RNA sequence: AACAAAAACAGCUCUUUUAGAAUUUUUCUGGCUUUCUGAUUUUGAUCAGAAAACCUAA
Numbered sequence: 001a002a003c004a005a006a007a008a009c010a011g012c013u014c015u016u017u018u019a020g021a022a023u024u025u026u027u028c029u030g031g032c033u034u035u036c037u038g039a040u041u042u043u044g045a046u047c048a049g050a051a052a053a054c055c056u057a058a
Base pairs, nucleotide, nucleotide: 030055031054033052034051035050036049037048038047039046040045
A member of the RNA family "U7 small nuclear RNA" from Mus musculus, 58 nucleotides long.
The match comes from Rfam's covariance-model search (41 bits).
Rfam 15.1 lists 10,439 matches to the family in 569 species.
From the family's description: Animal histone pre-mRNAs are spliced by a different mechanism than nuclear pre-mRNAs and self-splicing introns. This processing involves the U7 snRNP, which contains only one RNA species: U7. The 5' end of U7 RNA is thought to base-pair to a conserved spacer element downstream of the cleavage site in histone pre-mRNA. This family contains a number of annotated U7 pseudogenes.
The literature on the family includes a 1994 paper in Nucleic Acids Res by Spycher et al., "3' end processing of mouse histone pre-mRNA: evidence for additional base-pairing between U7 snRNA and pre-mRNA".